The family of this 137-nucleotide sequence from Acipenser ruthenus is "Small Cajal body specific RNA 15". The family has 22 seed sequences and 635 matches in Rfam 15.1. It scores 68 bits against the family's covariance model. Its Rfam clan is "SCARNA4 clan". Gene Ontology terms of the family: RNA processing, Cajal body and nucleolus.
RNA sequence: CUGGAGGACUAAGAAAGUGGUACCUAUGAAGUUAAUUGGUUCUGCUGAUACUAUCCUCCUAUAUUAAAAUGUAGAGCCGAGAACAGGUCAAUUUGCUUACCACCGUAGUAUUUGACCUACUUAUUCUACAAACAUAG
Numbered sequence: 001c002u003g004g005a006g007g008a009c010u011a012a013g014a015a016a017g018u019g020g021u022a023c024c025u026a027u028g029a030a031g032u033u034a035a036u037u038g039g040u041u042c043u044g045c046u047g048a049u050a051c052u053a054u055c056c057u058c059c060u061a062u063a064u065u066a067a068a069a070u071g072u073a074g075a076g077c078c079g080a081g082a083a084c085a086g087g088u089c090a091a092u093u094u095g096c097u098u099a100c101c102a103c104c105g106u107a108g109u110a111u112u113u114g115a116c117c118u119a120c121u122u123a124u125u126c127u128a129c130a131a132a133c134a135u136a137g
Stems, first nucleotide, its partner, number of pairs: 003059006010050002018044003022040003027034002070130007080122001085118007
Dot-bracket structure: ..((((((.((......(((.(((..((....))...))).)))....))...))))))..........(((((((...(....(((((((....................)))))))...).))))))).......

Rfam's curators write: scaRNAs are a specific class of small nuclear RNAs which localise to the Cajal bodies and guide the modification of RNA polymerase II transcribed spliceosomal RNAs U1, U2, U4, U5 and U12.